Shown here is a 69-nucleotide sequence from Streptomyces fumanus, a member of the family "ASpks TB sRNA".
Lineage of the source: Bacteria > Actinomycetota > Actinomycetes > Kitasatosporales > Streptomyces.
[Rfam]
RNA sequence: CUUCAGCGAGCCCAGCCACAGCGGCCGUUCACGCCCCUGCCCAUACGUCGCCAUGAGCGCCUGCACCUC
Numbered sequence: 001c002u003u004c005a006g007c008g009a010g011c012c013c014a015g016c017c018a019c020a021g022c023g024g025c026c027g028u029u030c031a032c033g034c035c036c037c038u039g040c041c042c043a044u045a046c047g048u049c050g051c052c053a054u055g056a057g058c059g060c061c062u063g064c065a066c067c068u069c
Stems, first nucleotide, its partner, number of pairs: 015025003028065001030063001032059002038053002041050001043048001